Record summary:
Shown here is a 77-nucleotide RNA from Haemonchus contortus, a member of the family "mir-83 microRNA precursor family". Lineage of the source: Eukaryota > Eumetazoa > Rhabditida > Strongyloidea > Haemonchus.

RNA sequence: UGAGUGAUAGUCCUGAAUUUAUUUGCGAGCUGGACAAUGAAAAGAUCUAGCACCAUGUAAAUUCAGCAUUUGAGCUC
Numbered sequence: 001u002g003a004g005u006g007a008u009a010g011u012c013c014u015g016a017a018u019u020u021a022u023u024u025g026c027g028a029g030c031u032g033g034a035c036a037a038u039g040a041a042a043a044g045a046u047c048u049a050g051c052a053c054c055a056u057g058u059a060a061a062u063u064c065a066g067c068a069u070u071u072g073a074g075c076u077c
Base pairs, nucleotide, nucleotide: 013066014065015064016063017062018061019060020059021058022057024055025054027053030050031049033047034046035044
Record summary
Its family is annotated with RISC complex and miRNA-mediated post-transcriptional gene silencing in the Gene Ontology. Pairs were carried over by alignment from the consensus structure, which was predicted with RNAalifold.